[Rfam]
RNA: Hepatitis C virus stem-loop VII
RNA sequence: UAAGCUACUGUCCCAGGGGGGGAGGGCCGCCACUUGUGGCAGGUACCUCUUCAACUGGGCAGUAAGGACC
Numbered sequence: 001u002a003a004g005c006u007a008c009u010g011u012c013c014c015a016g017g018g019g020g021g022g023a024g025g026g027c028c029g030c031c032a033c034u035u036g037u038g039g040c041a042g043g044u045a046c047c048u049c050u051u052c053a054a055c056u057g058g059g060c061a062g063u064a065a066g067g068a069c070c
Stems, first nucleotide, its partner, number of pairs: 006065001009062001012059005017050005026040005